Nucleotides: 164
Stems, first nucleotide, its partner, number of pairs: 003162008018038002041144002043134002045083004078132002088108001114130005136147003
Number, partner (000 for none) and nucleotide at each position: 001000u002000a003162g004161u005160u006159c007158c008157u009156u010155c011000a012000g013000g014000g015000u016000g017000u018038g019037g020000u021000g022000a023000g024000g025000c026000u027000u028000c029000g030000g031000c032000c033000a034000a035000u036000u037019c038018c039000c040000a041144a042143c043134c044133g045083g046082c047081g048080g049000u050000g051000a052000u053000g054000c055000u056000c057000c058000u059000u060000u061000u062000u063000u064000u065000c066000a067000a068000g069000a070000g071000g072000a073000g074000a075000c076000g077000a078132g079131u080048c081047c082046g083045c084000g085000a086000g087000c088108c089000u090000g091000c092000a093000a094000g095000c096000u097000c098000u099000g100000c101000u102000u103000g104000c105000g106000g107000u108088g109000c110000a111000g112000g113000a114130u115129c116128u117127g118126g119000u120000g121000c122000g123000a124000u125000u126118c127117c128116a129115g130114a131079a132078c133044c134043g135000a136147c137146g138145g139000u140000a141000c142000a143042g144041u145138c146137c147136g148000g149000a150000u151000g152000g153000g154000a155010g156009a157008a158007g159006g160005a161004a162003u163000g164000u

FMN riboswitch aptamer (RFN element): a 164-nucleotide RNA from Tumebacillus flagellatus. It scores 89 bits against the family's covariance model. The family's consensus secondary structure is taken from published work. The RFN element is a highly conserved domain that is found frequently in the 5'-untranslated regions of prokaryotic mRNAs that encode for flavin mononucleotide (FMN) biosynthesis and transport proteins.